Shown here is a 154-nucleotide RNA sequence from Amborella trichopoda, a member of the family "MIR8565 microRNA precursor family".

RNA sequence: CUCACACCCAUGUGUAUAGAACCCCGAAAGAUCACCAUUAAAUUUGGCACAGAUCUCCAGAAAAGUUAUUACAUGGGUGUGGGAUUUGACUUUUCUAGAGAUCUGUGUUAAAUUUAAUGGUAAUCCUUUGGUGUCCUACACACAUGGGUGUGGA
Numbered sequence: 001c002u003c004a005c006a007c008c009c010a011u012g013u014g015u016a017u018a019g020a021a022c023c024c025c026g027a028a029a030g031a032u033c034a035c036c037a038u039u040a041a042a043u044u045u046g047g048c049a050c051a052g053a054u055c056u057c058c059a060g061a062a063a064a065g066u067u068a069u070u071a072c073a074u075g076g077g078u079g080u081g082g083g084a085u086u087u088g089a090c091u092u093u094u095c096u097a098g099a100g101a102u103c104u105g106u107g108u109u110a111a112a113u114u115u116a117a118u119g120g121u122a123a124u125c126c127u128u129u130g131g132u133g134u135c136c137u138a139c140a141c142a143c144a145u146g147g148g149u150g151u152g153g154a
Base pairs, nucleotide, nucleotide: 002153003152004151005150006149007148008147009146010145011144012143013142015140017138018137019136021134022133024131025130026129027128028127030125031124032123034121035120036119037118038117039116040115041114042113043112044111045110046109047108048107049106050105051104052103053102054101055100056099057098059096060095061094062093063092064091065090066089067088068087069082070081071080072079073078
Rfam links the family to the GO terms miRNA-mediated post-transcriptional gene silencing and RISC complex.